Shown here is an 85-nucleotide sequence, a member of the family "skipping-rope RNA". It is annotated as a small RNA. Rfam's curators put it in the seed alignment.
RNA sequence: GGCUUUAGAGGGUGGAACAGGCAGCCGCCGCACCUGUAAAAAGCAGGUCUAAAGAGAUCCGGGAUACGCCUCCCCGGCUAAGGUC
Number, nucleotide and partner (000 for none) at each position: 001g085002g084003c083004u082005u081006u080007a079008g078009a000010g000011g029012g028013u027014g026015g025016a000017a000018c000019a071020g070021g069022c068023a000024g000025c015026c014027g013028c012029c011030g000031c054032a048033c047034c046035u045036g044037u043038a000039a000040a000041a000042a000043g037044c036045a035046g034047g033048u032049c000050u000051a000052a000053a000054g031055a000056g000057a000058u000059c077060c076061g075062g074063g073064a000065u000066a000067c000068g022069c021070c020071u019072c000073c063074c062075c061076g060077g059078c008079u007080a006081a005082g004083g003084u002085c001